RNA sequence: GUAAGAAAUAACAGUGCAAUUCUCCUUUGGCAAAUGAAUAUAUGCAAACCCUAUAUAUAUAUAUAUAUGUUUUGCAUGGCAUUAUAUUAUCUUUGCCAAAGGAGAAUUGCCCUGUCAUUCUUGU
Numbered sequence: 001g002u003a004a005g006a007a008a009u010a011a012c013a014g015u016g017c018a019a020u021u022c023u024c025c026u027u028u029g030g031c032a033a034a035u036g037a038a039u040a041u042a043u044g045c046a047a048a049c050c051c052u053a054u055a056u057a058u059a060u061a062u063a064u065a066u067a068u069g070u071u072u073u074g075c076a077u078g079g080c081a082u083u084a085u086a087u088u089a090u091c092u093u094u095g096c097c098a099a100a101g102g103a104g105a106a107u108u109g110c111c112c113u114g115u116c117a118u119u120c121u122u123g124u
Stems, first nucleotide, its partner, number of pairs: 005120002008118002012114003016110005022104004028098007036090001
RNA: mir-399 microRNA precursor family
Organism: Solanum commersonii